Shown here is a 62-nucleotide RNA sequence from Mus musculus, a member of the family "U7 small nuclear RNA". Taxonomically the source falls in Mus (Eukaryota, Eumetazoa, Gnathostomata, Myomorpha). Animal histone pre-mRNAs are spliced by a different mechanism than nuclear pre-mRNAs and self-splicing introns.
[Rfam]
RNA sequence: AACAAAUACAGCUCUUUUGAAAUUUUUCUAGCAGAUUUUCUGACUUUGGUCUGAACACCCGA
Number, nucleotide and partner (000 for none) at each position: 001a000002a000003c000004a000005a000006a000007u000008a000009c000010a000011g000012c000013u000014c000015u000016u000017u000018u000019g000020a000021a000022a000023u000024u000025u000026u000027u000028c000029u000030a000031g000032c000033a000034g059035a000036u057037u000038u055039u054040c053041u000042g051043a050044c049045u000046u000047u000048g000049g044050u043051c042052u000053g040054a039055a038056c000057a036058c000059c034060c000061g000062a000